A member of the RNA family "mir-187 microRNA precursor family" from Tetraodon nigroviridis, 65 nucleotides long. The sequence is in the family's curated seed alignment. The literature on the family includes a 2005 paper in Genes Dev by Chen et al., "The developmental miRNA profiles of zebrafish as determined by small RNA cloning". The organism belongs to Tetraodon, within Eukaryota.
RNA sequence: GGCUGCAACACAGGACAUGGGUCUUGCCUCUGCCCGCCGCUCGUGUCUUGUGUUGCAGCCAGUGG
Numbered sequence: 001g002g003c004u005g006c007a008a009c010a011c012a013g014g015a016c017a018u019g020g021g022u023c024u025u026g027c028c029u030c031u032g033c034c035c036g037c038c039g040c041u042c043g044u045g046u047c048u049u050g051u052g053u054u055g056c057a058g059c060c061a062g063u064g065g
Stems, first nucleotide, its partner, number of pairs: 001060004006055011018043004